[Rfam]
RNA sequence: UUAAAUCAAAUUUUUACGCAGUUGGAACGUUUGCCGCUAGUGGCGCUGUUCCAACUGCAUACAAAUUUUAGUUA
Numbered sequence: 001u002u003a004a005a006u007c008a009a010a011u012u013u014u015u016a017c018g019c020a021g022u023u024g025g026a027a028c029g030u031u032u033g034c035c036g037c038u039a040g041u042g043g044c045g046c047u048g049u050u051c052c053a054a055c056u057g058c059a060u061a062c063a064a065a066u067u068u069u070a071g072u073u074a
Stems, first nucleotide, its partner, number of pairs: 008068006015061002018058001020056010035042001